This 84-nucleotide RNA from Acipenser ruthenus belongs to the Rfam family "mir-221 microRNA precursor family". It scores 74 bits against the family's covariance model. Gene Ontology terms of the family: miRNA-mediated post-transcriptional gene silencing and RISC complex. The family's consensus secondary structure was predicted with RNAalifold.

RNA sequence: UCUGGCGUGAACCUGGCACACAAUGUAGAUUUCUGUCUUAUUUUAGCUACAGCUACAUUGUCUGCUGGGUUUCCCGCUGCCUGG
Numbered sequence: 001u002c003u004g005g006c007g008u009g010a011a012c013c014u015g016g017c018a019c020a021c022a023a024u025g026u027a028g029a030u031u032u033c034u035g036u037c038u039u040a041u042u043u044u045a046g047c048u049a050c051a052g053c054u055a056c057a058u059u060g061u062c063u064g065c066u067g068g069g070u071u072u073c074c075c076g077c078u079g080c081c082u083g084g
Base pairs, nucleotide, nucleotide: 013068014067015066016065017064018063020061021060022059023058024057025056026055027054028053033052034051035050036049